[Rfam]
Overview
The family of this 139-nucleotide RNA sequence from Nonomuraea wenchangensis is "c-di-AMP riboswitch aptamer (ydaO/yuaA leader)".
RNA sequence: AGUCGUCGCACGCCUAAUCCCGGGCGCGUCGCCCGGGAGCCGGGGACCCACGCACCUGGGGUGAAUCCACUUCGGUGGUAGGGACGCACUCUCACGCCCGAACCCGUCAGCUAACCCGGCCGGCAGAGGGAGAGGAACC
Numbered sequence: 001a002g003u004c005g006u007c008g009c010a011c012g013c014c015u016a017a018u019c020c021c022g023g024g025c026g027c028g029u030c031g032c033c034c035g036g037g038a039g040c041c042g043g044g045g046a047c048c049c050a051c052g053c054a055c056c057u058g059g060g061g062u063g064a065a066u067c068c069a070c071u072u073c074g075g076u077g078g079u080a081g082g083g084a085c086g087c088a089c090u091c092u093c094a095c096g097c098c099c100g101a102a103c104c105c106g107u108c109a110g111c112u113a114a115c116c117c118g119g120c121c122g123g124c125a126g127a128g129g130g131a132g133a134g135g136a137a138c139c
Stems, first nucleotide, its partner, number of pairs: 012124003018038009039120006049058002059105003067078004081099003